[Rfam]
RNA sequence: UUUUCGGUUAGAUAUGUUUGAUAUUCUUGGUUGUUGUUUUACUAUCCUCACCCAGGAAUCAAACAUAUUAUUACUGAGAU
Numbered sequence: 001u002u003u004u005c006g007g008u009u010a011g012a013u014a015u016g017u018u019u020g021a022u023a024u025u026c027u028u029g030g031u032u033g034u035u036g037u038u039u040u041a042c043u044a045u046c047c048u049c050a051c052c053c054a055g056g057a058a059u060c061a062a063a064c065a066u067a068u069u070a071u072u073a074c075u076g077a078g079a080u
Stems, first nucleotide, its partner, number of pairs: 005076004011069012024056002029053002032050002